[Rfam]
RNA sequence: GUGCCUUAAACUAAUGAGUAAGGAAAAUAACGCUGUCUAGUGGAUAACUAGAAUAGCAAUAAAUUACUCGAAUUUUUGAAUCGGGGCAACAGGUUACCCACUUGAGUAGAUUCUACUACUUUUCAGAAUCUGCUCGUGUUGUAGCGACCUAGCCC
Numbered sequence: 001g002u003g004c005c006u007u008a009a010a011c012u013a014a015u016g017a018g019u020a021a022g023g024a025a026a027a028u029a030a031c032g033c034u035g036u037c038u039a040g041u042g043g044a045u046a047a048c049u050a051g052a053a054u055a056g057c058a059a060u061a062a063a064u065u066a067c068u069c070g071a072a073u074u075u076u077u078g079a080a081u082c083g084g085g086g087c088a089a090c091a092g093g094u095u096a097c098c099c100a101c102u103u104g105a106g107u108a109g110a111u112u113c114u115a116c117u118a119c120u121u122u123u124c125a126g127a128a129u130c131u132g133c134u135c136g137u138g139u140u141g142u143a144g145c146g147a148c149c150u151a152g153c154c155c
Stems, first nucleotide, its partner, number of pairs: 004023005034053001036052005084155004091150005097144001100139002103136005111128004
RNA: U12 minor spliceosomal RNA
Organism: Adineta steineri